[Rfam]
RNA sequence: CCUAUUGUUUCGCCAAUAGUAGCCUACGGCAGGUGCGUCUUAUGAUGUACUAAGCUGCUCGGACAAGGUAACCCUCCCGAAAGGGUCGAGAAUGAACCGUGAGGGGACUUCAAGAACCGCAAGCAUUAUGCGGUUAGGGGG
Number, nucleotide and partner (000 for none) at each position: 001c000002c019003u018004a017005u016006u015007g014008u000009u000010u000011c000012g000013c000014c007015a006016a005017u004018a003019g002020u000021a000022g000023c000024c000025u000026a000027c000028g059029g058030c057031a056032g051033g050034u049035g048036c047037g046038u045039c044040u000041u000042a000043u000044g039045a038046u037047g036048u035049a034050c033051u032052a000053a000054g000055c000056u031057g030058c029059u028060c000061g000062g000063a000064c000065a000066a000067g000068g000069u000070a000071a000072c000073c088074c000075u000076c085077c084078c083079g000080a000081a000082a000083g078084g077085g076086u000087c000088g073089a000090g111091a110092a109093u000094g000095a000096a000097c104098c103099g000100u000101g000102a000103g098104g097105g000106g000107a000108c000109u092110u091111c090112a000113a000114g000115a000116a134117c133118c132119g131120c130121a129122a000123g000124c000125a000126u000127u000128a000129u121130g120131c119132g118133g117134u116135u000136a000137g000138g000139g000140g000141g000
The family of this 141-nucleotide RNA sequence from a Muribaculaceae bacterium is "Group II catalytic intron D1-D4-7". The source organism's lineage runs through Bacteria, Bacteroidota, Bacteroidia, Bacteroidales and Muribaculaceae. About the family: Group II introns are found in rRNA, tRNA and mRNA of organelles in fungi, plants and protists, and also in mRNA in bacteria. The base pairs follow the family's consensus structure. The literature on the family includes a 2001 paper in Trends Genet by Bonen and Vogel, "The ins and outs of group II introns". It scores 101 bits against the family's covariance model.